[Rfam]
RNA sequence: UCACUCUGGAAAGCAGGGCAGGGCCGCGGGCGAGGGAGCCGGCGGAGACCACCCUCACCGACGGUGCAAGCCGACGGGGCGUCAGCUCCGUGCGGGCGAAGCUCUCAGGUCCCGAUGACAGAGGGGGA
Numbered sequence: 001u002c003a004c005u006c007u008g009g010a011a012a013g014c015a016g017g018g019c020a021g022g023g024c025c026g027c028g029g030g031c032g033a034g035g036g037a038g039c040c041g042g043c044g045g046a047g048a049c050c051a052c053c054c055u056c057a058c059c060g061a062c063g064g065u066g067c068a069a070g071c072c073g074a075c076g077g078g079g080c081g082u083c084a085g086c087u088c089c090g091u092g093c094g095g096g097c098g099a100a101g102c103u104c105u106c107a108g109g110u111c112c113c114g115a116u117g118a119c120a121g122a123g124g125g126g127g128a
Stems, first nucleotide, its partner, number of pairs: 001126002004123005015055004057110003060106002064104001066102001070097002